A member of the RNA family "Small nucleolar RNA snoR26" from Ziziphus jujuba, 92 nucleotides long. The base pairs follow the family's consensus structure, which was predicted with WAR. Rfam 15.1 lists 611 matches to the family in 220 species. The match comes from Rfam's covariance-model search (69 bits). The family's RNA type in Rfam is C/D-box small nucleolar RNA. For this family Rfam cites "Multiple snoRNA gene clusters from Arabidopsis" (Brown et al., RNA, 2001).

RNA sequence: GGAGAAUCAUUAAUGAGUUUAUUAUAUUAUUAACCUUGCACUUUGAUUGCUUGUUAAGAAAAUCUAUGGGGAAAAUUUUCUUUGAGAUGCUC
Numbered sequence: 001g002g003a004g005a006a007u008c009a010u011u012a013a014u015g016a017g018u019u020u021a022u023u024a025u026a027u028u029a030u031u032a033a034c035c036u037u038g039c040a041c042u043u044u045g046a047u048u049g050c051u052u053g054u055u056a057a058g059a060a061a062a063u064c065u066a067u068g069g070g071g072a073a074a075a076u077u078u079u080c081u082u083u084g085a086g087a088u089g090c091u092c
Base pairs, nucleotide, nucleotide: 002092003091004090006088007087008086